[Rfam]
RNA sequence: AGGGUCAAUUUUUGGGUGCAGCACUGAGUGUAUUUGACAAGCUGAGUUUGACACUCAACAUAACAGUGUCAGUUUGUCAAAUACCCCAAGUGAGGCACCGACACUC
Numbered sequence: 001a002g003g004g005u006c007a008a009u010u011u012u013u014g015g016g017u018g019c020a021g022c023a024c025u026g027a028g029u030g031u032a033u034u035u036g037a038c039a040a041g042c043u044g045a046g047u048u049u050g051a052c053a054c055u056c057a058a059c060a061u062a063a064c065a066g067u068g069u070c071a072g073u074u075u076g077u078c079a080a081a082u083a084c085c086c087c088a089a090g091u092g093a094g095g096c097a098c099c100g101a102c103a104c105u106c
Base pairs, nucleotide, nucleotide: 022092023091024090025089028086030084031083032082033081034080035079036078037077038076039075040074041073042072043071050070051069052068053067056066